[Rfam]
RNA sequence: CCUGGCUACCUGACCUGUCCAUGAUGGAAGGUCAAUUAUUCUCGCUGAUUUCAGGAGCUAUUGAUUAUGCGUA
Numbered sequence: 001c002c003u004g005g006c007u008a009c010c011u012g013a014c015c016u017g018u019c020c021a022u023g024a025u026g027g028a029a030g031g032u033c034a035a036u037u038a039u040u041c042u043c044g045c046u047g048a049u050u051u052c053a054g055g056a057g058c059u060a061u062u063g064a065u066u067a068u069g070c071g072u073a
Stems, first nucleotide, its partner, number of pairs: 012033005018028003037063002041057003045054003
Dot-bracket structure: ...........(((((.(((.....))))))))...((..(((.(((....))))))....))..........
A member of the RNA family "Repression of heat shock gene expression (ROSE) element" from Citrobacter portucalensis, 73 nucleotides long. Its family is annotated with response to temperature stimulus and regulation of translation in the Gene Ontology. NCBI's taxonomy places the organism under Bacteria, Pseudomonadati, Enterobacterales, Enterobacteriaceae, Citrobacter freundii complex. For this family Rfam cites "A mRNA-based thermosensor controls expression of rhizobial heat shock genes" (Nocker et al., Nucleic Acids Res, 2001). Rfam's curators put it in the seed alignment. Pairs were carried over by alignment from the consensus structure, which is taken from published work. The family's RNA type in Rfam is RNA thermoregulator. From the family's description: This family represents a 5' UTR cis-regulatory element found in heat shock mRNAs and is known as the ROSE (repression of heat shock gene expression) element. The ROSE element is a negative regulator of heat shock gene expression. The secondary structure is thought to be regulated by temperature. This regulation blocks access to the ribosome binding site under normal conditions.